[Rfam]
RNA sequence: GGUGGUUCUCGGGUGACACAACCCGGAAUCAGACUCCUUCCUCUCUGGUUCCACAUGUAUUACCCAAGGACCACA
Numbered sequence: 001g002g003u004g005g006u007u008c009u010c011g012g013g014u015g016a017c018a019c020a021a022c023c024c025g026g027a028a029u030c031a032g033a034c035u036c037c038u039u040c041c042u043c044u045c046u047g048g049u050u051c052c053a054c055a056u057g058u059a060u061u062a063c064c065c066a067a068g069g070a071c072c073a074c075a
Base pairs, nucleotide, nucleotide: 002074003073005071006070007069008068009067011065012064013063014062015061016060019057020056025052026051027050028049029048030047031046032045033044